[Rfam]
The family of this 80-nucleotide RNA sequence from Saimiri boliviensis is "mir-4423 microRNA precursor family". Its family is annotated with miRNA-mediated post-transcriptional gene silencing and RISC complex in the Gene Ontology. A search with the family's covariance model found it, with a score of 85 bits. Taxonomically the source falls in Saimiri boliviensis (Eukaryota, Teleostomi, Dipnotetrapodomorpha, Cebidae).
RNA sequence: AUCACGUACUGCUGUUGCGUUUUUGUGCCUAUGCUGGUUAAGCCUAGCAUAGGCACCAACAAGCAACAACAGUAUAUGAA
Numbered sequence: 001a002u003c004a005c006g007u008a009c010u011g012c013u014g015u016u017g018c019g020u021u022u023u024u025g026u027g028c029c030u031a032u033g034c035u036g037g038u039u040a041a042g043c044c045u046a047g048c049a050u051a052g053g054c055a056c057c058a059a060c061a062a063g064c065a066a067c068a069a070c071a072g073u074a075u076a077u078g079a080a
Stems, first nucleotide, its partner, number of pairs: 002079003006075006014067005020062002023059003029053002031050006